[Rfam]
RNA sequence: UAAUAGCCCCGAUGGAAGUAAAAAUCCUUUUAUUUCGUUAAAAGUAACGAAAUAAAAGAAUUGCAACGUACAGCGGGAAUAUGG
Numbered sequence: 001u002a003a004u005a006g007c008c009c010c011g012a013u014g015g016a017a018g019u020a021a022a023a024a025u026c027c028u029u030u031u032a033u034u035u036c037g038u039u040a041a042a043a044g045u046a047a048c049g050a051a052a053u054a055a056a057a058g059a060a061u062u063g064c065a066a067c068g069u070a071c072a073g074c075g076g077g078a079a080u081a082u083g084g
Base pairs, nucleotide, nucleotide: 009076010075011074013072014071018067019066023062024061025060026058029056030055031054032053033052034051035050036049037048038047039046040045
RNA: Flavo-1 RNA